[Rfam]
Annotation
The record is a 101-nucleotide sequence from Oncorhynchus kisutch, which matches "Vault RNA" in Rfam. Rfam's curators write: This family of RNAs are found as part of the enigmatic vault ribonucleoprotein complex. The complex consists of a major vault protein (MVP), two minor vault proteins (VPARP and TEP1), and several small untranslated RNA molecules. It has been suggested that the vault complex is involved in drug resistance. The family's RNA type in Rfam is non-coding RNA gene.

RNA sequence: GCGCUGGUGUAGCUCAGUGGUUACUUCGAACUCUUUCUUUACCAGAAAUGUUCUCUACCUCUGCAAAGGGGUUCGAACCGCGGGCGCUGUCCAGAGUUUUG
Numbered sequence: 001g002c003g004c005u006g007g008u009g010u011a012g013c014u015c016a017g018u019g020g021u022u023a024c025u026u027c028g029a030a031c032u033c034u035u036u037c038u039u040u041a042c043c044a045g046a047a048a049u050g051u052u053c054u055c056u057a058c059c060u061c062u063g064c065a066a067a068g069g070g071g072u073u074c075g076a077a078c079c080g081c082g083g084g085c086g087c088u089g090u091c092c093a094g095a096g097u098u099u100u101g
Stems, first nucleotide, its partner, number of pairs: 002096001004094004012085004017081004025077007